[Rfam]
RNA sequence: AAACUUCACAUGCAGACAGGGGCGGGGAACCCACCGCGGGCCAGCCGGUCCGCACCGGGGGACGGAAUCGUCCCCCUCGGGGUGAAGCCUCCGCACCGAGGCCGGGCACAGUGAUCCUCCGCCCGAACCCGACAGCUCACCUCGCAGGCGUCAACAGGAGAGGAA
Numbered sequence: 001a002a003a004c005u006u007c008a009c010a011u012g013c014a015g016a017c018a019g020g021g022g023c024g025g026g027g028a029a030c031c032c033a034c035c036g037c038g039g040g041c042c043a044g045c046c047g048g049u050c051c052g053c054a055c056c057g058g059g060g061g062a063c064g065g066a067a068u069c070g071u072c073c074c075c076c077u078c079g080g081g082g083u084g085a086a087g088c089c090u091c092c093g094c095a096c097c098g099a100g101g102c103c104g105g106g107c108a109c110a111g112u113g114a115u116c117c118u119c120c121g122c123c124c125g126a127a128c129c130c131g132a133c134a135g136c137u138c139a140c141c142u143c144g145c146a147g148g149c150g151u152c153a154a155c156a157g158g159a160g161a162g163g164a165a
Stems, first nucleotide, its partner, number of pairs: 004021003022145006032079001080130003088101004104124004
Dot-bracket structure: ...(((............)))((((((....(..............................................)(((.....((((......))))..((((.............))))...))).........))))))....................
Rfam assigns this 165-nucleotide sequence from Corynebacterium halotolerans to the family "c-di-AMP riboswitch aptamer (ydaO/yuaA leader)".